Rfam assigns this 67-nucleotide sequence from Microtus ochrogaster to the family "Small nucleolar RNA SNORD42". By type it is a C/D-box small nucleolar RNA. Gene Ontology terms of the family: RNA processing and nucleolus. For this family Rfam cites "Purified box C/D snoRNPs are able to reproduce site-specific 2'-O-methylation of target RNA in vitro" (Galardi et al., Mol Cell Biol, 2002). Lineage of the source: Eukaryota > Deuterostomia > Dipnotetrapodomorpha > Amniota > Microtus. The family's consensus secondary structure was predicted with PFOLD. It scores 71 bits against the family's covariance model.
[Rfam]
RNA sequence: GUGCAUAUGAUGGAUAAAACUUUGUCUCCUGAGACCUAUGAUGUCUUCAAAGGAACCACUGAUGCGC
Numbered sequence: 001g002u003g004c005a006u007a008u009g010a011u012g013g014a015u016a017a018a019a020c021u022u023u024g025u026c027u028c029c030u031g032a033g034a035c036c037u038a039u040g041a042u043g044u045c046u047u048c049a050a051a052g053g054a055a056c057c058a059c060u061g062a063u064g065c066g067c
Stems, first nucleotide, its partner, number of pairs: 001067005